Shown here is a 121-nucleotide RNA sequence from Otolemur garnettii, a member of the family "Small nucleolar RNA SNORA26".

RNA sequence: UUUCCUGUCCCUUACAUGCAGUGCUUUAAGAGGCUAACACAGAAGGGUAAAGUAAAUCUCCACGAAACCCAGAGAAGAGAUUUUUAAAACUCCUCUUUGGAUCCUGUCUGGAGUCACAGCU
Number, nucleotide and partner (000 for none) at each position: 001u000002u049003u000004c047005c046006u045007g000008u043009c042010c000011c000012u037013u036014a035015c000016a000017u033018g000019c030020a000021g000022u000023g000024c000025u000026u000027u000028a000029a000030g019031a000032g000033g017034c000035u014036a013037a012038c000039a000040c000041a000042g009043a008044a000045g006046g005047g004048u000049a002050a000051a000052g000053u000054a000055a000056a000057u000058c113059u112060c111061c110062a109063c000064g000065a000066a000067a000068c000069c100070c099071a098072g097073a096074g095075a094076a000077g092078a091079g090080a000081u000082u089083u088084u000085u000086a000087a000088a083089a082090c079091u078092c077093c000094u075095c074096u073097u072098u071099g070100g069101a000102u000103c000104c000105u000106g000107u000108c000109u062110g061111g060112a059113g058114u000115c000116a000117c000118a000119g000120c000121u000

The family has 76 seed sequences and 1,943 matches in Rfam 15.1. The snoRNA HBI-6 belong to the H/ACA family of snoRNAs, guiding the pseudouridylation of position U4522 if the 28S rRNA. HBI-6 is the human orthologue of mouse MBI-6 snoRNA. The base pairs follow the family's consensus structure, which was predicted with RNAalifold.